[Rfam]
RNA sequence: AGGCACCUACGGGGGCCUUAAACAUAGCGGGCCCAAAGACAAUAACCUAAGGGUCUGCACGCUAAACGGAAGACAGAAA
Numbered sequence: 001a002g003g004c005a006c007c008u009a010c011g012g013g014g015g016c017c018u019u020a021a022a023c024a025u026a027g028c029g030g031g032c033c034c035a036a037a038g039a040c041a042a043u044a045a046c047c048u049a050a051g052g053g054u055c056u057g058c059a060c061g062c063u064a065a066a067c068g069g070a071a072g073a074c075a076g077a078a079a
Stems, first nucleotide, its partner, number of pairs: 001018004006014003027058007
RNA: L2-Alphaproteobacteria ribosomal protein leader